MIR8024 microRNA precursor family: an 86-nucleotide RNA from Solanum commersonii. The base pairs follow the family's consensus structure, which was predicted with RNAalifold. Its family is annotated with RISC complex and miRNA-mediated post-transcriptional gene silencing in the Gene Ontology. It scores 75 bits against the family's covariance model.
[Rfam]
RNA sequence: UUAAAGAAUUUGAAGACCUCAACUUGCAGACUUAAAGAAUUUGAAAACUUUAACUUGCAAACUUGAUUGAUUUGAAGACCUCAACU
Numbered sequence: 001u002u003a004a005a006g007a008a009u010u011u012g013a014a015g016a017c018c019u020c021a022a023c024u025u026g027c028a029g030a031c032u033u034a035a036a037g038a039a040u041u042u043g044a045a046a047a048c049u050u051u052a053a054c055u056u057g058c059a060a061a062c063u064u065g066a067u068u069g070a071u072u073u074g075a076a077g078a079c080c081u082c083a084a085c086u
Stems, first nucleotide, its partner, number of pairs: 001084002004081001006079001009076006019066003025059004032053006